Annotation:
This 455-nucleotide part of an RNA from candidate division MSBL1 archaeon SCGC-AAA382A13 belongs to the Rfam family "Archaeal large subunit ribosomal RNA". Pairs were carried over by alignment from the consensus structure, which is taken from published work. Taxonomically the source falls in candidate division MSBL1 (Archaea, Methanobacteriati, Methanobacteriota).

RNA sequence: CCUUCCGAAAAUGGCCGCAGCCAUGCCUGACACGAGGUAGUUAUGGGUGUAGAGCACUGAUUAGUGAGCGCGGGAGGAGACUCCCGACUCGCUUGUCAAACUCCGAAGCCUGUAACGCUCUAGACUGUCAGAGUUAGGGUGCAGGGGGUAAGCUCCUGCUCCGAAAGGGGAACAACCCAGACUAGGGUUAAGGCCCCAAAAUGCCGGCUAAGUGUUAAUCUUAAAGGGAGUCUUCGUCCUGAGACAGCGGGAAAGUAGGCUUAGAAGCAGCCAUCCUUUAAACAGCGCGUAACAGCGAACCCGUUAAGGGUGAAGGCCCCUAAAAUGGACGGGACUAAGCCGGCUGCCAAUACCUUAGAACAGGUGAAGAAAUAGUAACCUGAUUCUGUAGGAAGGCAUCCGGCGAGGGUAGAAGUACGGUUUUAAGAUCGUAUGGACCUCGUUGGAAAGAGAAC
Numbered sequence: 001c002c003u004u005c006c007g008a009a010a011a012u013g014g015c016c017g018c019a020g021c022c023a024u025g026c027c028u029g030a031c032a033c034g035a036g037g038u039a040g041u042u043a044u045g046g047g048u049g050u051a052g053a054g055c056a057c058u059g060a061u062u063a064g065u066g067a068g069c070g071c072g073g074g075a076g077g078a079g080a081c082u083c084c085c086g087a088c089u090c091g092c093u094u095g096u097c098a099a100a101c102u103c104c105g106a107a108g109c110c111u112g113u114a115a116c117g118c119u120c121u122a123g124a125c126u127g128u129c130a131g132a133g134u135u136a137g138g139g140u141g142c143a144g145g146g147g148g149u150a151a152g153c154u155c156c157u158g159c160u161c162c163g164a165a166a167g168g169g170g171a172a173c174a175a176c177c178c179a180g181a182c183u184a185g186g187g188u189u190a191a192g193g194c195c196c197c198a199a200a201a202u203g204c205c206g207g208c209u210a211a212g213u214g215u216u217a218a219u220c221u222u223a224a225a226g227g228g229a230g231u232c233u234u235c236g237u238c239c240u241g242a243g244a245c246a247g248c249g250g251g252a253a254a255g256u257a258g259g260c261u262u263a264g265a266a267g268c269a270g271c272c273a274u275c276c277u278u279u280a281a282a283c284a285g286c287g288c289g290u291a292a293c294a295g296c297g298a299a300c301c302c303g304u305u306a307a308g309g310g311u312g313a314a315g316g317c318c319c320c321u322a323a324a325a326u327g328g329a330c331g332g333g334a335c336u337a338a339g340c341c342g343g344c345u346g347c348c349a350a351u352a353c354c355u356u357a358g359a360a361c362a363g364g365u366g367a368a369g370a371a372a373u374a375g376u377a378a379c380c381u382g383a384u385u386c387u388g389u390a391g392g393a394a395g396g397c398a399u400c401c402g403g404c405g406a407g408g409g410u411a412g413a414a415g416u417a418c419g420g421u422u423u424u425a426a427g428a429u430c431g432u433a434u435g436g437a438c439c440u441c442g443u444u445g446g447a448a449a450g451a452g453a454a455c
Stems, first nucleotide, its partner, number of pairs: 001396006011024005026133001027131006036119003040116008052104001053102002059097003063093006071086006137162003141159006167178003182358007192348003201345001203344006226320003230317010247304005253277001255275001258272003278282001287296002360385001361382005397450001399447010415434008